[Rfam]
RNA: small nucleolar RNA snoR117
Organism: Ostreococcus sp. 'lucimarinus'
RNA sequence: AGCCGAUGAUGAGACACACUUGUCCGUACCAUCUGAUUUCGGUGACGAUCAAACUUGUGAAUCUCGUUAAGCUGAGGCUU
Numbered sequence: 001a002g003c004c005g006a007u008g009a010u011g012a013g014a015c016a017c018a019c020u021u022g023u024c025c026g027u028a029c030c031a032u033c034u035g036a037u038u039u040c041g042g043u044g045a046c047g048a049u050c051a052a053a054c055u056u057g058u059g060a061a062u063c064u065c066g067u068u069a070a071g072c073u074g075a076g077g078c079u080u
Stems, first nucleotide, its partner, number of pairs: 001079004